[Rfam]
RNA sequence: UGUAUUCGAGUGUAUUCGAGUGUAUUCACAGCGUGAAACAGGGGAUUAUAUUAUUUUUAAACGGAAAGUGAAUCAAUUAACAUAAUAGACUCCU
Numbered sequence: 001u002g003u004a005u006u007c008g009a010g011u012g013u014a015u016u017c018g019a020g021u022g023u024a025u026u027c028a029c030a031g032c033g034u035g036a037a038a039c040a041g042g043g044g045a046u047u048a049u050a051u052u053a054u055u056u057u058u059a060a061a062c063g064g065a066a067a068g069u070g071a072a073u074c075a076a077u078u079a080a081c082a083u084a085a086u087a088g089a090c091u092c093c094u
Stems, first nucleotide, its partner, number of pairs: 002091001007088001009086001011084003015080002018078002021075002024073006032063003035057004040052002
A member of the RNA family "MIR6152 microRNA precursor family" from Nicotiana sylvestris, 94 nucleotides long. Gene Ontology terms of the family: miRNA-mediated post-transcriptional gene silencing and RISC complex. The source organism's lineage runs through Eukaryota, Streptophytina, Solanales, Nicotianeae and Nicotiana.